The record is a 98-nucleotide sequence from Microlunatus sagamiharensis, which matches "Glycine riboswitch aptamer" in Rfam. The source organism's lineage runs through Bacteria, Bacillati, Actinomycetes, Propionibacteriaceae and Microlunatus. It scores 62 bits against the family's covariance model. Its family is annotated with glycine biosynthetic process in the Gene Ontology. Its Rfam clan is "Glycine riboswitch clan".
RNA sequence: AGCGACCUCGCGGGAGAGCGCAGCGUUCAGCGAUGAGCGCUGCCGCCGAAGGGGCAACAUCCCCGGAACCUCUCAGGCACCCAGACCGCGCGGCCAUG
Numbered sequence: 001a002g003c004g005a006c007c008u009c010g011c012g013g014g015a016g017a018g019c020g021c022a023g024c025g026u027u028c029a030g031c032g033a034u035g036a037g038c039g040c041u042g043c044c045g046c047c048g049a050a051g052g053g054g055c056a057a058c059a060u061c062c063c064c065g066g067a068a069c070c071u072c073u074c075a076g077g078c079a080c081c082c083a084g085a086c087c088g089c090g091c092g093g094c095c096a097u098g
Stems, first nucleotide, its partner, number of pairs: 006093002009090005020043007045078003048074002052072003058065001